This 103-nucleotide sequence from Plutella xylostella belongs to the Rfam family "mir-8517 microRNA precursor family". The match comes from Rfam's covariance-model search (71 bits).

[Rfam]
RNA sequence: GUACUGGACGCUUUAGCUAUUGCACUGUUUUGUCACUCUCUGUCAAAGAACAAAUUGUUCCCUUUCAGAGAGUGACAGAACAAUAGCUAAAGCGUCCACUAAC
Numbered sequence: 001g002u003a004c005u006g007g008a009c010g011c012u013u014u015a016g017c018u019a020u021u022g023c024a025c026u027g028u029u030u031u032g033u034c035a036c037u038c039u040c041u042g043u044c045a046a047a048g049a050a051c052a053a054a055u056u057g058u059u060c061c062c063u064u065u066c067a068g069a070g071a072g073u074g075a076c077a078g079a080a081c082a083a084u085a086g087c088u089a090a091a092g093c094g095u096c097c098a099c100u101a102a103c
Stems, first nucleotide, its partner, number of pairs: 002101002005098002011092012025078004029069004035063001049059004